RNA sequence: GGCAGGGGCUUGCACCCAGGCUCUCAGUACUUCGGAAGAGCUCCCGGAGUUAGACUCUCCCUGCGGGAGAGAAACUGUUACGGAUCUGCGCAUUGAGCGAUCCACACGGUGCAGGCC
Numbered sequence: 001g002g003c004a005g006g007g008g009c010u011u012g013c014a015c016c017c018a019g020g021c022u023c024u025c026a027g028u029a030c031u032u033c034g035g036a037a038g039a040g041c042u043c044c045c046g047g048a049g050u051u052a053g054a055c056u057c058u059c060c061c062u063g064c065g066g067g068a069g070a071g072a073a074a075c076u077g078u079u080a081c082g083g084a085u086c087u088g089c090g091c092a093u094u095g096a097g098c099g100a101u102c103c104a105c106a107c108g109g110u111g112c113a114g115g116c117c
Stems, first nucleotide, its partner, number of pairs: 007117010025077004029050007055071007082103003087099003
A member of the RNA family "DUF3268 RNA", 117 nucleotides long. It is annotated as a small RNA.